Source information: A member of the RNA family "GRIK4 3 prime UTR element" from Saimiri boliviensis, 81 nucleotides long. A search with the family's covariance model found it, with a score of 66 bits. Rfam classes the family as a non-coding RNA gene. Taxonomically the source falls in Saimiri boliviensis (Eukaryota, Teleostomi, Dipnotetrapodomorpha, Boreoeutheria).
RNA sequence: UAACCCCGACGGCCACAGGACGCGCGGAGGCGGGCGGGGCGGGGGGGGCGCCGCUGUCCGCCGCCAGCUCGGACUUGCACA
Numbered sequence: 001u002a003a004c005c006c007c008g009a010c011g012g013c014c015a016c017a018g019g020a021c022g023c024g025c026g027g028a029g030g031c032g033g034g035c036g037g038g039g040c041g042g043g044g045g046g047g048g049c050g051c052c053g054c055u056g057u058c059c060g061c062c063g064c065c066a067g068c069u070c071g072g073a074c075u076u077g078c079a080c081a
Base pairs, nucleotide, nucleotide: 004039005038006037007036012031013030014029